[Rfam]
RNA sequence: CGUUUAAAACUAUUUUAAUUUAGCAGGUGCAUUCGUAUAUUCAUUAAAAGCAAAAGUUGUAUUAUUGGAAAAAUUGCUUUUAUUGUUAGAUAAUAUUUUAUGAAAAAACGUUGCUAAAUUAUUCUGUAUAAUUUAGACAACAUCAAAGUUUUGUUAUAGAGGUACAAGAAUAUAUUUUUAUUUUUUAUUUAAAAUAGUUCAAUUCAAGUUUUUGUUGUUAAAUUAAAAUCAAAGUAGUAAAUUUUUUUCCAUUGUGUAAUGUUUUGGGCAAAUCUUGUUUAAAUUAAGUAAAUAAGAACUCAAACCUUGAGAUAUAGAAGUUUAUAAUGUUUUAAAUGUCCCGUCUUGAAACACGG
Numbered sequence: 001c002g003u004u005u006a007a008a009a010c011u012a013u014u015u016u017a018a019u020u021u022a023g024c025a026g027g028u029g030c031a032u033u034c035g036u037a038u039a040u041u042c043a044u045u046a047a048a049a050g051c052a053a054a055a056g057u058u059g060u061a062u063u064a065u066u067g068g069a070a071a072a073a074u075u076g077c078u079u080u081u082a083u084u085g086u087u088a089g090a091u092a093a094u095a096u097u098u099u100a101u102g103a104a105a106a107a108a109c110g111u112u113g114c115u116a117a118a119u120u121a122u123u124c125u126g127u128a129u130a131a132u133u134u135a136g137a138c139a140a141c142a143u144c145a146a147a148g149u150u151u152u153g154u155u156a157u158a159g160a161g162g163u164a165c166a167a168g169a170a171u172a173u174a175u176u177u178u179u180a181u182u183u184u185u186u187a188u189u190u191a192a193a194a195u196a197g198u199u200c201a202a203u204u205c206a207a208g209u210u211u212u213u214g215u216u217g218u219u220a221a222a223u224u225a226a227a228a229u230c231a232a233a234g235u236a237g238u239a240a241a242u243u244u245u246u247u248u249c250c251a252u253u254g255u256g257u258a259a260u261g262u263u264u265u266g267g268g269c270a271a272a273u274c275u276u277g278u279u280u281a282a283a284u285u286a287a288g289u290a291a292a293u294a295a296g297a298a299c300u301c302a303a304a305c306c307u308u309g310a311g312a313u314a315u316a317g318a319a320g321u322u323u324a325u326a327a328u329g330u331u332u333u334a335a336a337u338g339u340c341c342c343g344u345c346u347u348g349a350a351a352c353a354c355g356g
Base pairs, nucleotide, nucleotide: 001338002337003336004335005334006333007332008331009330010329011327020117021116022115023114024113025112026111122319123318124317125316126315127314128313341356342355343354344353
Rfam assigns this 356-nucleotide part of an RNA from Sciurus carolinensis to the family "Eukaryotic large subunit ribosomal RNA". Rfam links the family to the GO terms ribosome and structural constituent of ribosome. The match comes from Rfam's covariance-model search (2619 bits). The organism belongs to Sciurus, within Eukaryota.